A member of the RNA family "tRNA" from Nucleicultrix amoebiphila, 74 nucleotides long.
Transfer RNA (tRNA) molecules are approximately 80 nucleotides in length.
Pairs were carried over by alignment from the consensus structure, which is taken from published work.
NCBI's taxonomy places the organism under Bacteria, Pseudomonadati, Pseudomonadota, Holosporales, Nucleicultrix amoebiphila (SeqCode).
[Rfam]
RNA sequence: GCGCUCUUAGCUCAGAUGGAUAGAGCAACAGCCUUCUAAGCUGUGGGUCGCAGGUUCGAAUCCUGCAGAGCGCG
Number, nucleotide and partner (000 for none) at each position: 001g073002c072003g071004c070005u069006c068007u067008u000009a000010g026011c025012u024013c023014a000015g000016a000017u000018g000019g000020a000021u000022a000023g013024a012025g011026c010027a000028a044029c043030a042031g041032c040033c000034u000035u000036c000037u000038a000039a000040g032041c031042u030043g029044u028045g000046g000047g000048u000049c000050g066051c065052a064053g063054g062055u000056u000057c000058g000059a000060a000061u000062c054063c053064u052065g051066c050067a007068g006069a005070g004071c003072g002073c001074g000